[Rfam]
Shown here is a 75-nucleotide RNA from Cephus cinctus, a member of the family "mir-3478 microRNA precursor family". The family's consensus secondary structure was predicted with RNAalifold. The source organism's lineage runs through Eukaryota, Insecta, Dicondylia, Eumetabola and Cephus. The family has 2 seed sequences and 14 matches in Rfam 15.1. Rfam links the family to the GO terms RISC complex and miRNA-mediated post-transcriptional gene silencing.
RNA sequence: GGACGGACAUUGGAUGAAUCCUACCCGGUGAGGUUUUAAAUAUUCCUUACCGGAUGAGAUUUCACCCGAUAGCAG
Dot-bracket structure: ...(.(...((((.((((((.(..(((((..((...........))..)))))..).)))).)).))))).)...
Numbered sequence: 001g002g003a004c005g006g007a008c009a010u011u012g013g014a015u016g017a018a019u020c021c022u023a024c025c026c027g028g029u030g031a032g033g034u035u036u037u038a039a040a041u042a043u044u045c046c047u048u049a050c051c052g053g054a055u056g057a058g059a060u061u062u063c064a065c066c067c068g069a070u071a072g073c074a075g
Stems, first nucleotide, its partner, number of pairs: 004072001006070001010069004015064002017061004022056001025053005032046002